Description: This 126-nucleotide RNA from Lynx pardinus belongs to the Rfam family "Small nucleolar RNA SNORA40". A reference for the family is Ofengand and Bakin (1997), "Mapping to nucleotide resolution of pseudouridine residues in large subunit ribosomal RNAs from representative eukaryotes, prokaryotes, archaebacteria, mitochondria and chloroplasts", J Mol Biol. The organism belongs to Lynx, within Eukaryota. Rfam links the family to the GO terms nucleolus and RNA processing. About the family: The snoRNA ACA 40 belongs to the H/ACA family of snoRNAs and guides the pseudouridylation of 28S rRNA subunit at position U4565. NB This family has a high threshold value to exclude a large number of closely related sequences that do not appear to have conserved H and ACA boxes, and may be pseudogenes.
[Rfam]
RNA sequence: UGCACUUGAUGUUGGGCUUGCUUAGCUCAUAGACAAAGACUCAGACAAGUGGGAAAAACAAAUCCUCUUUUGCAACCCAGAACUCAUCGUUGAAUGUGAGUUUUGAUACAGCUAAGAAGGAACAUG
Numbered sequence: 001u002g003c004a005c006u007u008g009a010u011g012u013u014g015g016g017c018u019u020g021c022u023u024a025g026c027u028c029a030u031a032g033a034c035a036a037a038g039a040c041u042c043a044g045a046c047a048a049g050u051g052g053g054a055a056a057a058a059c060a061a062a063u064c065c066u067c068u069u070u071u072g073c074a075a076c077c078c079a080g081a082a083c084u085c086a087u088c089g090u091u092g093a094a095u096g097u098g099a100g101u102u103u104u105g106a107u108a109c110a111g112c113u114a115a116g117a118a119g120g121a122a123c124a125u126g
Base pairs, nucleotide, nucleotide: 001053003051004050005049006048007047008046014040018036019035020034063122065120066119068117069116070115071114072113078105079104080103081102082101083100084099085098086097087096

The family's consensus secondary structure was predicted with RNAalifold.